A member of the RNA family "mir-87 microRNA precursor family" from Musca domestica, 78 nucleotides long. The match comes from Rfam's covariance-model search (67 bits). Rfam 15.1 lists 420 matches to the family in 285 species. The family's consensus secondary structure was predicted with RNAalifold. Rfam links the family to the GO terms miRNA-mediated post-transcriptional gene silencing and RISC complex.
RNA sequence: CAUUCGCACCUGUAUUUUGCUGAACCGUUUCCAUUCUCUUCUAUUUCCGGUUGAGCAAAAUUUCAGGUGUGUGAGAAA
Numbered sequence: 001c002a003u004u005c006g007c008a009c010c011u012g013u014a015u016u017u018u019g020c021u022g023a024a025c026c027g028u029u030u031c032c033a034u035u036c037u038c039u040u041c042u043a044u045u046u047c048c049g050g051u052u053g054a055g056c057a058a059a060a061u062u063u064c065a066g067g068u069g070u071g072u073g074a075g076a077a078a
Stems, first nucleotide, its partner, number of pairs: 003075004007069006014061005020055002023052001025050003